[Rfam]
RNA: Selenocysteine transfer RNA
RNA sequence: GAUUGAUGAGCGUUGCUGGUGCAACGCGUAGCCUUCAAAUAUUAUAAAGUCAGCUACGGGCCGGUAAUAUCGGCAGAGGUUCGAUUCUCUCCUUCGAUC
Numbered sequence: 001g002a003u004u005g006a007u008g009a010g011c012g013u014u015g016c017u018g019g020u021g022c023a024a025c026g027c028g029u030a031g032c033c034u035u036c037a038a039a040u041a042u043u044a045u046a047a048a049g050u051c052a053g054c055u056a057c058g059g060g061c062c063g064g065u066a067a068u069a070u071c072g073g074c075a076g077a078g079g080u081u082c083g084a085u086u087c088u089c090u091c092c093u094u095c096g097a098u099c
Base pairs, nucleotide, nucleotide: 001099002098003097004096005095006094008092011026012025013024014023015022016021027058028057029056030055031054032053060074061073062072063071064070076091077090078089079087